[Rfam]
RNA sequence: UGGUAGAUGCACCCUGAUUUAAUCGCCCCUGGCUUCGGCUGGGGGCUUUUUGU
Numbered sequence: 001u002g003g004u005a006g007a008u009g010c011a012c013c014c015u016g017a018u019u020u021a022a023u024c025g026c027c028c029c030u031g032g033c034u035u036c037g038g039c040u041g042g043g044g045g046c047u048u049u050u051u052g053u
Stems, first nucleotide, its partner, number of pairs: 002013003026045008
This 53-nucleotide RNA sequence from Thermocoleostomius sinensis belongs to the Rfam family "Nitrogen stress-induced RNA 1".
Lineage of the source: Bacteria > Bacillati > Oculatellales > Oculatellaceae > Thermocoleostomius sinensis.
Rfam classes the family as a small RNA.